[Rfam]
RNA sequence: UUGCCCUCUCGGAGCUUGACGGUGCUCCGGGGAGUCAACACAGGGGGAUAGAGCAGCUCUUCCUCACUAAAACCCAGUGCGGAGCCCUCCCCUCCGCCCUGCAUCCUGUCGUGAGGCACAAAU
Numbered sequence: 001u002u003g004c005c006c007u008c009u010c011g012g013a014g015c016u017u018g019a020c021g022g023u024g025c026u027c028c029g030g031g032g033a034g035u036c037a038a039c040a041c042a043g044g045g046g047g048a049u050a051g052a053g054c055a056g057c058u059c060u061u062c063c064u065c066a067c068u069a070a071a072a073c074c075c076a077g078u079g080c081g082g083a084g085c086c087c088u089c090c091c092c093u094c095c096g097c098c099c100u101g102c103a104u105c106c107u108g109u110c111g112u113g114a115g116g117c118a119c120a121a122a123u
Stems, first nucleotide, its partner, number of pairs: 002050002005047005014039001016038003020031001063115005075101003079097002082094003
Notes
The family of this 123-nucleotide RNA from Cettia cetti is "Small nucleolar RNA SNORA26". Lineage of the source: Eukaryota > Eumetazoa > Archosauria > Acrocephalinae > Cettia. Rfam's curators write: The snoRNA HBI-6 belong to the H/ACA family of snoRNAs, guiding the pseudouridylation of position U4522 if the 28S rRNA. HBI-6 is the human orthologue of mouse MBI-6 snoRNA. A reference for the family is Huttenhofer et al. (2001), "RNomics: an experimental approach that identifies 201 candidates for novel, small, non-messenger RNAs in mouse", EMBO J. The match comes from Rfam's covariance-model search (43 bits).